[Rfam]
RNA sequence: UCAAUGAAACUGAAAGUUUUCUGUGUUCGUACAGAAAAUGAACUGAUUGAUCUUCUGUAAUGCUAUUAUGAGGAUCACCCUUUGAGGUUUAUAGCAAUAGGUCGCCCUAUGAUCAGUUACAUGCUUUUGUUGA
Numbered sequence: 001u002c003a004a005u006g007a008a009a010c011u012g013a014a015a016g017u018u019u020u021c022u023g024u025g026u027u028c029g030u031a032c033a034g035a036a037a038a039u040g041a042a043c044u045g046a047u048u049g050a051u052c053u054u055c056u057g058u059a060a061u062g063c064u065a066u067u068a069u070g071a072g073g074a075u076c077a078c079c080c081u082u083u084g085a086g087g088u089u090u091a092u093a094g095c096a097a098u099a100g101g102u103c104g105c106c107c108u109a110u111g112a113u114c115a116g117u118u119a120c121a122u123g124c125u126u127u128u129g130u131u132g133a
Stems, first nucleotide, its partner, number of pairs: 001133009016039010041118007049076007062095005097110005
Dot-bracket structure: (((((((((......((((((((((....)))))))))).(((((((.(((((((......[[[[[...)))))))..............]]]]].(((((....))))).)))))))......)))))))))
RNA: Staphylococcus-1 RNA